[Rfam]
RNA sequence: GAACAUUUGCUCUUUUAGUAUUUAUCCAGUAGGUUUUCUCAAGGAGAACCCCC
Numbered sequence: 001g002a003a004c005a006u007u008u009g010c011u012c013u014u015u016u017a018g019u020a021u022u023u024a025u026c027c028a029g030u031a032g033g034u035u036u037u038c039u040c041a042a043g044g045a046g047a048a049c050c051c052c053c
Stems, first nucleotide, its partner, number of pairs: 032050008